Rfam assigns this 266-nucleotide sequence from Selenihalanaerobacter shriftii to the family "Bacterial large signal recognition particle RNA". The organism belongs to Selenihalanaerobacter, within Bacteria.
RNA sequence: UCGUGCUAAACGGGGUGGUAGCGGUGCCCUGUAACCCGCAAUCCGCUAUAGCGGGGUUGAAGUCUGCCUAAGCAUAUUUCUUUUUAAGGUCAGGCUUAAGUAAGUGGUGUUGAAGGUUGGGUCCUACGCAACGGAGAAUUAUGAAUUCCGUCAGGCCCGGAAGGGAGCAACGGUAAGUAAUAUCUUCCGUGUGCCGUAGGGUUACCUGGCUCGAGCUAACUACUUAAGUAACGCUUAAGACGAAGUAUGUGAGGGCAGAUGCACGG
Numbered sequence: 001u002c003g004u005g006c007u008a009a010a011c012g013g014g015g016u017g018g019u020a021g022c023g024g025u026g027c028c029c030u031g032u033a034a035c036c037c038g039c040a041a042u043c044c045g046c047u048a049u050a051g052c053g054g055g056g057u058u059g060a061a062g063u064c065u066g067c068c069u070a071a072g073c074a075u076a077u078u079u080c081u082u083u084u085u086a087a088g089g090u091c092a093g094g095c096u097u098a099a100g101u102a103a104g105u106g107g108u109g110u111u112g113a114a115g116g117u118u119g120g121g122u123c124c125u126a127c128g129c130a131a132c133g134g135a136g137a138a139u140u141a142u143g144a145a146u147u148c149c150g151u152c153a154g155g156c157c158c159g160g161a162a163g164g165g166a167g168c169a170a171c172g173g174u175a176a177g178u179a180a181u182a183u184c185u186u187c188c189g190u191g192u193g194c195c196g197u198a199g200g201g202u203u204a205c206c207u208g209g210c211u212c213g214a215g216c217u218a219a220c221u222a223c224u225u226a227a228g229u230a231a232c233g234c235u236u237a238a239g240a241c242g243a244a245g246u247a248u249g250u251g252a253g254g255g256c257a258g259a260u261g262c263a264c265g266g
Stems, first nucleotide, its partner, number of pairs: 001266006009058003012030006019023001035055005063259007072250005079243002082240007093229001096227006104220002106217003115211008123200006129191002132189005138181005148173004156165003